The record is a 70-nucleotide RNA sequence, which matches "bablM sRNA" in Rfam. It is one of the family's seed sequences. The base pairs follow the family's consensus structure, which is taken from published work.
RNA sequence: UAAUCCAAUUAAUUCAAUCUGAAGUUGACCGUGGAAUCCAUUUGGAGUCUAAUUGUUUUAUACAAAAUGG
Dot-bracket structure: .............(((((.....)))))....(((.(((....))).)))....................